BsrC: an 86-nucleotide sequence from Metabacillus lacus. On this family, see Saito et al., Gene 2008: "Novel small RNA-encoding genes in the intergenic regions of Bacillus subtilis". The match comes from Rfam's covariance-model search (74 bits). From the family's description: The 301 nucleotide sequence from Kouji Nakamura has been trimmed to a highly conserved ~85 nucleotide long core to form this family. NCBI's taxonomy places the organism under Bacteria, Bacillati, Bacilli, Bacillaceae, Metabacillus.
RNA sequence: UGACACUUAGACGAUGUAAGCCCUGCCUCUCUUACAUCCUUGCGGUUCCUGGACCGCGCCAGCUGAAUAAGUGCCUUCAACAUGAA
Numbered sequence: 001u002g003a004c005a006c007u008u009a010g011a012c013g014a015u016g017u018a019a020g021c022c023c024u025g026c027c028u029c030u031c032u033u034a035c036a037u038c039c040u041u042g043c044g045g046u047u048c049c050u051g052g053a054c055c056g057c058g059c060c061a062g063c064u065g066a067a068u069a070a071g072u073g074c075c076u077u078c079a080a081c082a083u084g085a086a
Base pairs, nucleotide, nucleotide: 035065036064039062040061041058042057043056044055045054046053047052